Rfam assigns this 102-nucleotide RNA from Oribacterium sp. KHPX15 to the family "Purine riboswitch aptamer". The source organism's lineage runs through Bacteria, Bacillota, Clostridia, Lachnospirales and Oribacterium. The family has 133 seed sequences and 4,097 matches in Rfam 15.1.
Nucleotides: 102
Stems, first nucleotide, its partner, number of pairs: 018088001020086006029049007058078005064072001
Number, partner (000 for none) and nucleotide at each position: 001000u002000u003000a004000c005000c006000a007000u008000g009000g010000a011000u012000g013000a014000g015000a016000u017000u018088a019000a020086u021085c022084g023083a024082u025081a026000u027000a028000g029049g030048u031047c032046a033045a034044a035043u036000a037000a038000u039000a040000u041000g042000g043035a044034u045033u046032u047031g048030a049029u050000g051000u052000u053000u054000c055000u056000a057000c058078c059077c060076g061075g062074u063000u064072g065000c066000c067000g068000u069000a070000a071000a072064u073000u074062a075061c076060c077059g078058g079000a080000c081025u082024a083023u084022c085021g086020a087000a088018u089000u090000u091000u092000c093000g094000a095000u096000u097000c098000a099000g100000u101000a102000u